[Rfam]
RNA: Small nucleolar RNA SNORD24
RNA sequence: UGCCACAAUGAUGACACUUAUUUGCUACUCUUGACCAAAAGAAUGAUGAGCAUUUUUACCACCAUUACUUUCUUCUGAGGCA
Numbered sequence: 001u002g003c004c005a006c007a008a009u010g011a012u013g014a015c016a017c018u019u020a021u022u023u024g025c026u027a028c029u030c031u032u033g034a035c036c037a038a039a040a041g042a043a044u045g046a047u048g049a050g051c052a053u054u055u056u057u058a059c060c061a062c063c064a065u066u067a068c069u070u071u072c073u074u075c076u077g078a079g080g081c082a
Stems, first nucleotide, its partner, number of pairs: 001082004